[Rfam]
RNA: HDV ribozyme from F. prausnitzii
RNA sequence: GGGGUGUGGGAUAGACUUACCUCCUCGUGGUACACCCUUGGCAACGUAUAAUCAUACGGCAAAAACGUCUAU
Numbered sequence: 001g002g003g004g005u006g007u008g009g010g011a012u013a014g015a016c017u018u019a020c021c022u023c024c025u026c027g028u029g030g031u032a033c034a035c036c037c038u039u040g041g042c043a044a045c046g047u048a049u050a051a052u053c054a055u056a057c058g059g060c061a062a063a064a065a066c067g068u069c070u071a072u
Stems, first nucleotide, its partner, number of pairs: 001038007019031003045058005